[Rfam]
RNA sequence: UUAGGGAAAUGAUGCUAAAAGAUAUCGAAUCAUGUAUCAUAGGCGCAAUUUAUGUUCUUUGCUGAUCGAUUGUUUGCACGUCAGUCUGAUCUCAAA
Numbered sequence: 001u002u003a004g005g006g007a008a009a010u011g012a013u014g015c016u017a018a019a020a021g022a023u024a025u026c027g028a029a030u031c032a033u034g035u036a037u038c039a040u041a042g043g044c045g046c047a048a049u050u051u052a053u054g055u056u057c058u059u060u061g062c063u064g065a066u067c068g069a070u071u072g073u074u075u076g077c078a079c080g081u082c083a084g085u086c087u088g089a090u091c092u093c094a095a096a
Stems, first nucleotide, its partner, number of pairs: 001096002004093004